[Rfam]
RNA sequence: UCCCUCACAGUCUUCCGACUCUCGUUUUCCGCAAGGAAUGUCUAUCGCAGACCCCCCUUCCAGGCUGGUUUGCCCACAACAUGCCGCCCUCGAGCCUGUAUCAGGACCUCGUUGACUGCCGCAGUGGAUCUGUUGUGCGUUACACGCCGUUCGUUACGGGACGGUCCAGCCUAGCCGGGGGAAUGAGUUUCGGAACUUAACCCUAAGAAGAUAU
Number, nucleotide and partner (000 for none) at each position: 001u000002c000003c000004c000005u000006c000007a000008c000009a197010g196011u195012c000013u000014u000015c193016c192017g191018a190019c000020u000021c000022u000023c000024g000025u000026u000027u000028u000029c000030c000031g000032c000033a000034a000035g000036g000037a000038a000039u000040g000041u000042c000043u000044a000045u000046c000047g000048c000049a000050g000051a000052c000053c000054c000055c000056c000057c000058u000059u000060c000061c000062a000063g000064g000065c000066u000067g000068g000069u000070u000071u000072g000073c000074c000075c000076a000077c000078a000079a000080c000081a000082u000083g000084c000085c000086g000087c000088c000089c000090u000091c000092g000093a000094g000095c000096c000097u000098g000099u000100a000101u000102c000103a000104g000105g000106a000107c000108c000109u000110c000111g000112u000113u000114g000115a000116c000117u000118g000119c000120c000121g000122c000123a000124g000125u000126g000127g000128a000129u000130c000131u000132g000133u000134u000135g000136u000137g000138c000139g000140u000141u000142a000143c000144a000145c000146g000147c000148c000149g000150u000151u000152c000153g000154u000155u000156a000157c000158g000159g000160g000161a000162c000163g000164g000165u000166c000167c000168a000169g000170c000171c000172u000173a000174g000175c000176c000177g000178g000179g000180g000181g000182a000183a000184u000185g000186a000187g000188u000189u000190u018191c017192g016193g015194a000195a011196c010197u009198u000199a000200a000201c000202c000203c000204u000205a000206a000207g000208a000209a000210g000211a000212u000213a000214u000
Ascomycota telomerase RNA: a 214-nucleotide part of an RNA from Neonectria ditissima. The match comes from Rfam's covariance-model search (368 bits). Gene Ontology terms of the family: telomerase activity, telomerase catalytic core complex and telomere maintenance via telomerase.